A member of the RNA family "c-di-GMP-I riboswitch aptamer" from Blastopirellula marina, 76 nucleotides long.
RNA sequence: CCUCGAAAAAGGCAAACCGAUCGUGAGGUCGGGACGCAAAGCCAAGGGCCACGUAAGUGGACGCCAGGCUGCCGAA
Numbered sequence: 001c002c003u004c005g006a007a008a009a010a011g012g013c014a015a016a017c018c019g020a021u022c023g024u025g026a027g028g029u030c031g032g033g034a035c036g037c038a039a040a041g042c043c044a045a046g047g048g049c050c051a052c053g054u055a056a057g058u059g060g061a062c063g064c065c066a067g068g069c070u071g072c073c074g075a076a
Stems, first nucleotide, its partner, number of pairs: 012037002017032006040070004046065002049060004